[Rfam]
RNA: mir-302 microRNA precursor family
RNA sequence: CCUCUGCUUUAACAUGGAAGUGCUUGCUGUGAUUUUAAAAAAUUAAGUGCUUCCAUGUUUGAGUUGUGG
Number, nucleotide and partner (000 for none) at each position: 001c069002c068003u000004c000005u000006g064007c063008u062009u000010u000011a059012a058013c057014a056015u055016g054017g053018a052019a051020g050021u049022g048023c047024u046025u045026g044027c000028u042029g000030u000031g000032a000033u000034u000035u000036u000037a000038a000039a000040a000041a000042a028043u000044u026045a025046a024047g023048u022049g021050c020051u019052u018053c017054c016055a015056u014057g013058u012059u011060u000061g000062a008063g007064u006065u000066g000067u000068g002069g001